This 151-nucleotide RNA from Planktothrix agardhii belongs to the Rfam family "c-di-AMP riboswitch aptamer (ydaO/yuaA leader)".

RNA sequence: AUAGUCAGUCAGCCUAAUCCACUCUUUUUUAAUGAGUUAGGAGCGGGGGAACCAUCUUUAGGGGCUUAUCUUCGAUUGUUUGUGAUUGUCGAGAAGGACAUCUCUCAGUCCUAGCCCGUCAGCUAACCCCGUCGGCUGUGAGAGAAGACUG
Numbered sequence: 001a002u003a004g005u006c007a008g009u010c011a012g013c014c015u016a017a018u019c020c021a022c023u024c025u026u027u028u029u030u031a032a033u034g035a036g037u038u039a040g041g042a043g044c045g046g047g048g049g050a051a052c053c054a055u056c057u058u059u060a061g062g063g064g065c066u067u068a069u070c071u072u073c074g075a076u077u078g079u080u081u082g083u084g085a086u087u088g089u090c091g092a093g094a095a096g097g098a099c100a101u102c103u104c105u106c107a108g109u110c111c112u113a114g115c116c117c118g119u120c121a122g123c124u125a126a127c128c129c130c131g132u133c134g135g136c137u138g139u140g141a142g143a144g145a146a147g148a149c150u151g
Stems, first nucleotide, its partner, number of pairs: 011137004018042003043132006053061001062117003070093003096111004
Taxonomically the source falls in Planktothrix agardhii (Bacteria, Bacillati, Cyanophyceae, Oscillatoriales).